Rfam assigns this 476-nucleotide part of an RNA from Mucor lusitanicus to the family "Eukaryotic large subunit ribosomal RNA". It scores 3267 bits against the family's covariance model.

RNA sequence: UAGAACAAUGUAGAUAAGGGAAGUCGGCAAAAUAGAUCCGUAACUUCGGGAUAAGGAUUGGCUCUAAGGGUUGGGUAGAUAUGGACUCUUGGUAUGGUUGGUUUCUAGGCGAUUUUAAGUGAUUUCGGUUGCUUGAUUUUGCUUGGAGAUCUUCGUAACCAGGAGAGCCCAGUUUACGCUUAACAACCAACUUAGAACUGGUACGGACAAGGGGAAUCUGACUGUCUAAUUAAAACAUAGCAUUGCGAUGGCCAGAAAGUGGUGUUGACGCAAUGUGAUUUCUGCCCAGUGCUCUGAAUGUCAAAGUGAAGAAAUUCAACCAAGCGCGGGUAAACGGCGGGAGUAACUAUGACUCUCUUAAGGUAGCCAAAUGCCUCGUCAUCUAAUUAGUGACGCGCAUGAAUGGAUUAACGAGAUUCCCACUGUCCCUAUCUACUAUCUAGCGAAACCACAGCCAAGGGAACGGGCUUGGCAGA
Numbered sequence: 001u002a003g004a005a006c007a008a009u010g011u012a013g014a015u016a017a018g019g020g021a022a023g024u025c026g027g028c029a030a031a032a033u034a035g036a037u038c039c040g041u042a043a044c045u046u047c048g049g050g051a052u053a054a055g056g057a058u059u060g061g062c063u064c065u066a067a068g069g070g071u072u073g074g075g076u077a078g079a080u081a082u083g084g085a086c087u088c089u090u091g092g093u094a095u096g097g098u099u100g101g102u103u104u105c106u107a108g109g110c111g112a113u114u115u116u117a118a119g120u121g122a123u124u125u126c127g128g129u130u131g132c133u134u135g136a137u138u139u140u141g142c143u144u145g146g147a148g149a150u151c152u153u154c155g156u157a158a159c160c161a162g163g164a165g166a167g168c169c170c171a172g173u174u175u176a177c178g179c180u181u182a183a184c185a186a187c188c189a190a191c192u193u194a195g196a197a198c199u200g201g202u203a204c205g206g207a208c209a210a211g212g213g214g215a216a217u218c219u220g221a222c223u224g225u226c227u228a229a230u231u232a233a234a235a236c237a238u239a240g241c242a243u244u245g246c247g248a249u250g251g252c253c254a255g256a257a258a259g260u261g262g263u264g265u266u267g268a269c270g271c272a273a274u275g276u277g278a279u280u281u282c283u284g285c286c287c288a289g290u291g292c293u294c295u296g297a298a299u300g301u302c303a304a305a306g307u308g309a310a311g312a313a314a315u316u317c318a319a320c321c322a323a324g325c326g327c328g329g330g331u332a333a334a335c336g337g338c339g340g341g342a343g344u345a346a347c348u349a350u351g352a353c354u355c356u357c358u359u360a361a362g363g364u365a366g367c368c369a370a371a372u373g374c375c376u377c378g379u380c381a382u383c384u385a386a387u388u389a390g391u392g393a394c395g396c397g398c399a400u401g402a403a404u405g406g407a408u409u410a411a412c413g414a415g416a417u418u419c420c421c422a423c424u425g426u427c428c429c430u431a432u433c434u435a436c437u438a439u440c441u442a443g444c445g446a447a448a449c450c451a452c453a454g455c456c457a458a459g460g461g462a463a464c465g466g467g468c469u470u471g472g473c474a475g476a
Base pairs, nucleotide, nucleotide: 001442002441003440004439010436011435012434013433014432015431016430018428019427020426035059036058037057038056039055044049060199061198063196064195065194066193067192068191069188070187071186072185073184075177076176077175078174079173082171083170084169086165087164088163090161091160092159093158100151101150102149103148104147105146106145107144108143109142110141111140112139115136116135117134118133119132120131121130122129123128200204212421213420214419215418216417217416218415219413220412223237224236225235240276241275242274243273244272245271246270247269251263252262253261254260280407281406282405284338285337286336289335290334291331292330293329294328296327299326300325301324307318308317309316310315339357340356341355342354343353344352358362378394379393380392381391382390455472456471457470458469459468